The record is a 135-nucleotide sequence from Paenibacillus sp. PvR098, which matches "c-di-AMP riboswitch aptamer (ydaO/yuaA leader)" in Rfam. Taxonomically the source falls in Paenibacillus (Bacteria, Bacillota, Caryophanales, Paenibacillaceae).
[Rfam]
RNA sequence: UAUUAGAAUACGCUUAAUUUCCGAUUACCUUAAUUGGAAAGCGGGGGAACCAUUUUUUUGGGGCGAAUCAAGAUUGUAGGGAACCAUCUUUCCCGAGCCCGACAGCUAACCUCGUCAGCAGUUAGAUGGGUCAAA
Numbered sequence: 001u002a003u004u005a006g007a008a009u010a011c012g013c014u015u016a017a018u019u020u021c022c023g024a025u026u027a028c029c030u031u032a033a034u035u036g037g038a039a040a041g042c043g044g045g046g047g048a049a050c051c052a053u054u055u056u057u058u059u060g061g062g063g064c065g066a067a068u069c070a071a072g073a074u075u076g077u078a079g080g081g082a083a084c085c086a087u088c089u090u091u092c093c094c095g096a097g098c099c100c101g102a103c104a105g106c107u108a109a110c111c112u113c114g115u116c117a118g119c120a121g122u123u124a125g126a127u128g129g130g131u132c133a134a135a
Base pairs, nucleotide, nucleotide: 012119013118014117018040019039020038021037022036023035024034025033026032027031041115042114043113044112045111046110051060052059061100062099063098069076070075079094080093081092082091